[Rfam]
RNA sequence: GGAUGGGACUCUGGAAAGAGCCUUUUCGAUAAGGCCACCGUAGAAGUAAAACUUUCAGGUAAAAAUACAGAGGGUACAGG
Numbered sequence: 001g002g003a004u005g006g007g008a009c010u011c012u013g014g015a016a017a018g019a020g021c022c023u024u025u026u027c028g029a030u031a032a033g034g035c036c037a038c039c040g041u042a043g044a045a046g047u048a049a050a051a052c053u054u055u056c057a058g059g060u061a062a063a064a065a066u067a068c069a070g071a072g073g074g075u076a077c078a079g080g
Base pairs, nucleotide, nucleotide: 006075009072010071011070012069013068020035021034022033023032037060038059039058040056044054045053046052

This 80-nucleotide sequence from Lachnospiraceae bacterium 5_1_57FAA belongs to the Rfam family "Glycine riboswitch aptamer". Taxonomically the source falls in Lachnospiraceae (Bacteria, Bacillati, Bacillota, Lachnospirales). The pairing is the family consensus, mapped onto this sequence. Rfam links the family to the GO term glycine biosynthetic process.